[Rfam]
RNA sequence: AUCUAUCUUCGGGGCAGGGUGAAAAUCCCGACCGGCGGUGAUGAAGCAGAUUUUUUUGUUUCUUAGUCCGUGACCCGACUACGUUAUCGUAGGCGGUGGACCUGGUGAAACUCCGGGACCGACAGUGAAAGUCUGGAUGGGAGAAGAUGGCG
Numbered sequence: 001a002u003c004u005a006u007c008u009u010c011g012g013g014g015c016a017g018g019g020u021g022a023a024a025a026u027c028c029c030g031a032c033c034g035g036c037g038g039u040g041a042u043g044a045a046g047c048a049g050a051u052u053u054u055u056u057u058g059u060u061u062c063u064u065a066g067u068c069c070g071u072g073a074c075c076c077g078a079c080u081a082c083g084u085u086a087u088c089g090u091a092g093g094c095g096g097u098g099g100a101c102c103u104g105g106u107g108a109a110a111c112u113c114c115g116g117g118a119c120c121g122a123c124a125g126u127g128a129a130a131g132u133c134u135g136g137a138u139g140g141g142a143g144a145a146g147a148u149g150g151c152g
Stems, first nucleotide, its partner, number of pairs: 003150008017029003031132002033121002035071004066119002075096002101117005123135003
RNA: FMN riboswitch aptamer (RFN element)